RNA: Bacterial large subunit ribosomal RNA, nucleotides 2105 to 2692
RNA sequence: CCCGCAUCAAGACGGAAAGACCCCGUGGACCUUUACUAUAACCUGUUAUUGGCACCAGGCAACGCAUGUAGAGGAUAGGUGGGAGACUUUGAAGCGGGGGCGCCAGCCCUCGUGGAGUCACCCUUGGAAUACCACCCUUGCGUUGUUUAGUGUCUAACCCACCCCCCUGAAGCGGGGGGGGGAACCGUGACAGGCGGGUAGUUUGACUGGGGCGGUCGCCUCCCAAAGUGUAACGGAGGCGCACAAAGGUUCCCUCAGCACGGUCGGCAAUCGUGCAUUGAGCGCAAGAGUAAAAGGGAGCUUGACUGCGAGACUGACAAGUCGAGCAGGGACGAAAGUCGGUUCUAGUGAUCCGGCGGUGCCGCGUGGAAGGGCCGUCGCUCAUCGGACAAAAGGUACCCCGGGGAUAACAGGCUUAUCGCGCCCAAGCGUCCACAGCGACGGCGCGGUUUGGCACCUCGAUGUCGGCUCAUCGCAUCCUGGGGCUGUAUUCGGUCCCAAGGGUUGGUCUGUUCGCCCAUUAAAGCGGUACGUGAGCUGGGUUCAGAACGUCGCGAGACAGUUCGGUCCCUAUCUGAUGUGGGCGCA
Number, nucleotide and partner (000 for none) at each position: 001c584002c583003c582004g581005c580006a579007u578008c577009a000010a576011g575012a574013c000014g571015g570016a000017a000018a000019g000020a000021c000022c405023c404024c403025g402026u000027g401028g400029a397030c396031c395032u394033u393034u000035a202036c201037u200038a199039u000040a000041a000042c194043c193044u192045g191046u190047u189048a188049u000050u000051g154052g153053c152054a151055c150056c000057a148058g147059g146060c145061a144062a143063c142064g141065c140066a139067u000068g137069u000070a000071g000072a000073g000074g000075a000076u000077a000078g136079g135080u134081g133082g132083g000084a000085g119086a118087c117088u000089u000090u000091g000092a000093a000094g113095c112096g111097g110098g109099g108100g107101c106102g000103c000104c000105a000106g101107c100108c099109c098110u097111c096112g095113u094114g000115g000116a000117g087118u086119c085120a000121c000122c000123c000124u000125u000126g000127g000128a000129a000130u000131a000132c082133c081134a080135c079136c078137c068138u000139u066140g065141c064142g063143u062144u061145g060146u059147u058148u057149a000150g055151u054152g053153u052154c051155u000156a000157a000158c182159c181160c180161a000162c179163c178164c177165c176166c175167c174168u000169g000170a000171a000172g000173c000174g167175g166176g165177g164178g163179g162180g160181g159182g158183a000184a000185c000186c000187g000188u048189g047190a046191c045192a044193g043194g042195c000196g000197g000198g000199u038200a037201g036202u035203u000204u000205g217206a216207c215208u214209g000210g000211g000212g000213c000214g208215g207216u206217c205218g240219c239220c238221u237222c236223c235224c000225a000226a000227a000228g000229u000230g000231u000232a000233a000234c000235g223236g222237a221238g220239g219240c218241g386242c000243a343244c342245a000246a000247a000248g000249g301250u300251u299252c298253c297254c296255u281256c280257a000258g276259c275260a274261c273262g272263g271264u000265c000266g000267g000268c000269a000270a000271u263272c262273g261274u260275g259276c258277a000278u000279u000280g256281a255282g291283c290284g000285c000286a000287a000288g000289a000290g283291u282292a000293a000294a000295a000296g254297g253298g252299a251300g250301c249302u000303u000304g000305a000306c329307u328308g327309c326310g000311a000312g323313a322314c321315u000316g000317a000318c000319a000320a000321g314322u313323c312324g000325a000326g309327c308328a307329g306330g000331g340332a339333c338334g000335a000336a000337a000338g333339u332340c331341g000342g244343u243344u000345c000346u000347a000348g000349u000350g000351a000352u000353c000354c380355g379356g378357c377358g376359g375360u374361g000362c373363c372364g000365c000366g000367u000368g000369g000370a000371a000372g363373g362374g360375c359376c358377g357378u356379c355380g354381c000382u000383c000384a000385u000386c241387g000388g000389a000390c000391a000392a000393a033394a032395g031396g030397u029398a000399c000400c028401c027402c025403g024404g023405g022406g000407a000408u000409a000410a000411c000412a000413g000414g455415c454416u453417u000418a452419u449420c448421g447422c446423g445424c444425c443426c000427a000428a000429g439430c438431g000432u000433c000434c000435a000436c000437a000438g430439c429440g000441a000442c000443g425444g424445c423446g422447c421448g420449g419450u000451u000452u418453g416454g415455c414456a000457c000458c000459u000460c000461g000462a000463u000464g000465u000466c541467g539468g538469c537470u536471c533472a530473u529474c528475g527476c526477a000478u000479c504480c503481u000482g499483g498484g497485g496486c495487u494488g000489u000490a000491u000492u000493c000494g487495g486496u485497c484498c483499c482500a000501a000502g000503g480504g479505u000506u520507g519508g518509u000510c516511u000512g000513u000514u000515c000516g510517c000518c508519c507520a506521u000522u000523a000524a000525a000526g476527c475528g474529g473530u472531a000532c000533g471534u000535g000536a470537g469538c468539u467540g000541g466542g000543u000544u000545c000546a000547g565548a564549a563550c562551g560552u559553c558554g000555c000556g000557a000558g553559a552560c551561a000562g550563u549564u548565c547566g000567g000568u000569c000570c015571c014572u000573a000574u012575c011576u010577g008578a007579u006580g005581u004582g003583g002584g001585c000586g000587c000588a000